[Rfam]
The family of this 67-nucleotide sequence from Sulfolobus sp. SCGC AB-777_L09 is "Sulfolobus sRNA133". It is annotated as a small RNA. Rfam describes the family as follows. This RNA has structural homologues in 3 archaeon Sulfolobus genomes: tokodaii, acidocalarius and solfotaricus. It shows extensive compensatory base changes, possibly consistent with a functional role. A reference for the family is Tang et al. (2005), "Identification of novel non-coding RNAs as potential antisense regulators in the archaeon Sulfolobus solfataricus", Mol Microbiol. Lineage of the source: Archaea > Thermoproteati > Thermoproteota > Sulfolobaceae > Sulfolobus.
Nucleotides: 067
Stems, first nucleotide, its partner, number of pairs: 017065004023060004028055002033050002036047003
Number, partner (000 for none) and nucleotide at each position: 001000g002000u003000g004000a005000g006000g007000g008000u009000c010000g011000a012000u013000g014000a015000g016000g017065c018064u019063c020062c021000c022000a023060u024059g025058u026057c027000c028055u029054u030000g031000a032000a033050g034049g035000g036047a037046g038045u039000g040000g041000u042000u043000u044000a045038a046037c047036u048000a049034c050033c051000g052000u053000a054029g055028a056000c057026g058025g059024c060023a061000u062020g063019g064018g065017g066000a067000g